[Rfam]
RNA sequence: GGUAGAGUAGGUGUCUCGCGUUAAGUGCCAAGGGAUGGGACGUUGCCCUUGGACGAAAGCUAUUAAGAGCUGCGUUGGGACAUCGCGUUCGCUAUC
Numbered sequence: 001g002g003u004a005g006a007g008u009a010g011g012u013g014u015c016u017c018g019c020g021u022u023a024a025g026u027g028c029c030a031a032g033g034g035a036u037g038g039g040a041c042g043u044u045g046c047c048c049u050u051g052g053a054c055g056a057a058a059g060c061u062a063u064u065a066a067g068a069g070c071u072g073c074g075u076u077g078g079g080a081c082a083u084c085g086c087g088u089u090c091g092c093u094a095u096c
Stems, first nucleotide, its partner, number of pairs: 001096005010084009019074003025054002028052007038090005058071004

Annotation: Rfam assigns this 96-nucleotide RNA from Natranaerobius thermophilus to the family "THF (Tetrahydrofolate) riboswitch aptamer". The sequence is in the family's curated seed alignment. Pairs were carried over by alignment from the consensus structure, which is taken from published work. Its family is annotated with tetrahydrofolate metabolic process in the Gene Ontology. About the family: Tetrahydrofolate (THF) riboswitch was first reported for Ames et al. as an RNA motif in 5' untranslated (5'-UTR)regions of folate transport and biosynthesis genes in Firmicutes genomes. The family has 101 seed sequences and 747 matches in Rfam 15.1.